RNA sequence: AUCACCUGGGGACCCUGCUAAAGGUCAGAUUCUGAUUCCAGGGUGGGGUCGGAGAUUCUGCACUUCUAACAAGCUCCCGGGUGAUGCUGA
Numbered sequence: 001a002u003c004a005c006c007u008g009g010g011g012a013c014c015c016u017g018c019u020a021a022a023g024g025u026c027a028g029a030u031u032c033u034g035a036u037u038c039c040a041g042g043g044u045g046g047g048g049u050c051g052g053a054g055a056u057u058c059u060g061c062a063c064u065u066c067u068a069a070c071a072a073g074c075u076c077c078c079g080g081g082u083g084a085u086g087c088u089g090a
Base pairs, nucleotide, nucleotide: 003083004082005081009077010076011075014073016071017070019068020067021065022064023063026060027059028058029057031055032054033053
mir-544 microRNA precursor family: a 90-nucleotide RNA from Propithecus coquereli. A search with the family's covariance model found it, with a score of 66 bits. NCBI's taxonomy places the organism under Eukaryota, Eumetazoa, Boreoeutheria, Strepsirrhini, Propithecus. On this family, see Chiang et al., Genes Dev 2010: "Mammalian microRNAs: experimental evaluation of novel and previously annotated genes". Rfam links the family to the GO terms miRNA-mediated post-transcriptional gene silencing and RISC complex.